SAM riboswitch aptamer (S box leader): an 89-nucleotide RNA sequence from Fusobacterium necrogenes.
RNA sequence: UAACCAUCAAGAGAGAUUGAGGGACUGGCCCUAUGACAUCUCAGCAACCUGCUUUUCUAGUGUGGUGCUAACUCCUGUACAGAUGGAUG
Number, nucleotide and partner (000 for none) at each position: 001u089002a088003a000004c086005c085006a084007u083008c082009a000010a000011g000012a000013g042014a041015g040016a039017u038018u000019g000020a000021g031022g030023g029024a000025c077026u000027g075028g074029c023030c022031c021032u000033a000034u000035g000036a000037c000038a017039u016040c015041u014042c013043a069044g068045c067046a066047a000048c065049c064050u062051g061052c060053u059054u000055u000056u000057c000058u000059a053060g052061u051062g050063u000064g049065g048066u046067g045068c044069u043070a000071a000072c000073u081074c028075c027076u000077g025078u000079a000080c000081a073082g008083a007084u006085g005086g004087a000088u002089g001
Gene Ontology term of the family: regulation of gene expression. It scores 70 bits against the family's covariance model.